Annotation: The family of this 35-nucleotide RNA is "DUF805b RNA". The family's consensus secondary structure is taken from published work. The family's RNA type in Rfam is cis-regulatory element.
RNA sequence: GAGGCGAACCCGAAAAGCCUAUAACAGAGUAGGAA
Numbered sequence: 001g002a003g004g005c006g007a008a009c010c011c012g013a014a015a016a017g018c019c020u021a022u023a024a025c026a027g028a029g030u031a032g033g034a035a
Stems, first nucleotide, its partner, number of pairs: 002020004010033002